[Rfam]
RNA sequence: GUCUGGCUUAGUUAGGGGGCGUACAUCGACCGGGGCGCGGCACGGCCAUGGCACUGGUCAUAGCCUUUCGCCUCCCCCUUCUCAGGCCUAUUUGAGGGGGCGCUGUGUCUCUCUCUGUCUAUCUUUGCAGCGCCCUCCAAGCAGCCUUGGACAAAC
Number, nucleotide and partner (000 for none) at each position: 001g000002u000003c000004u021005g020006g000007c018008u017009u016010a000011g000012u000013u000014a000015g000016g009017g008018g007019g000020c005021g004022u000023a000024c000025a000026u000027c000028g000029a000030c000031c000032g000033g000034g072035g071036c070037g069038c000039g000040g000041c000042a000043c000044g000045g000046c000047c000048a000049u000050g000051g000052c000053a000054c000055u000056g000057g000058u000059c000060a000061u000062a000063g000064c000065c000066u000067u000068u000069c037070g036071c035072c034073u000074c000075c000076c000077c000078c000079u000080u000081c150082u149083c000084a147085g146086g145087c144088c000089u000090a000091u141092u140093u139094g138095a000096g137097g136098g135099g134100g133101c132102g131103c130104u129105g128106u127107g126108u000109c000110u000111c000112u000113c000114u000115c000116u000117g000118u000119c000120u000121a000122u000123c000124u000125u000126u107127g106128c105129a104130g103131c102132g101133c100134c099135c098136u097137c096138c094139a093140a092141g091142c000143a000144g087145c086146c085147u084148u000149g082150g081151a000152c000153a000154a000155a000156c000

This 156-nucleotide RNA from Colocasia esculenta belongs to the Rfam family "Small nucleolar RNA U19". For this family Rfam cites "Experimental RNomics: identification of 140 candidates for small non-messenger RNAs in the plant Arabidopsis thaliana" (Marker et al., Curr Biol, 2002). A search with the family's covariance model found it, with a score of 61 bits. Its family is annotated with nucleolus and RNA processing in the Gene Ontology. The organism belongs to Colocasia, within Eukaryota. Rfam 15.1 lists 421 matches to the family in 201 species.